RNA: Actino-pnp RNA
RNA sequence: UCUGGUCCUCGGUAGUGGCUCCCGGAGCGUGACGUUCCGGGGACCACGGUCGAAGACCGUC
Numbered sequence: 001u002c003u004g005g006u007c008c009u010c011g012g013u014a015g016u017g018g019c020u021c022c023c024g025g026a027g028c029g030u031g032a033c034g035u036u037c038c039g040g041g042g043a044c045c046a047c048g049g050u051c052g053a054a055g056a057c058c059g060u061c
Stems, first nucleotide, its partner, number of pairs: 003059005009053005017045002020042010
Dot-bracket structure: ..(((((.(((((...((.((((((((((...)))))))))).))...))))).)))))..